[Rfam]
RNA sequence: AGCGGAUGCAGUAACUGACGACAUUUGUGGAACCAACCACAGGGGAGCUGCAUGGACAUAACGUCGGGUCGUCUGGGCAGAGAUA
Numbered sequence: 001a002g003c004g005g006a007u008g009c010a011g012u013a014a015c016u017g018a019c020g021a022c023a024u025u026u027g028u029g030g031a032a033c034c035a036a037c038c039a040c041a042g043g044g045g046a047g048c049u050g051c052a053u054g055g056a057c058a059u060a061a062c063g064u065c066g067g068g069u070c071g072u073c074u075g076g077g078c079a080g081a082g083a084u085a
Stems, first nucleotide, its partner, number of pairs: 006053007015044002017073005027040004063078003
The record is an 85-nucleotide RNA sequence from Pullulanibacillus pueri, which matches "ZMP/ZTP riboswitch aptamer (pfl RNA motif)" in Rfam. The source organism's lineage runs through Bacteria, Bacillota, Caryophanales, Sporolactobacillaceae and Pullulanibacillus. Rfam links the family to the GO terms regulation of purine nucleotide biosynthetic process and one-carbon metabolic process.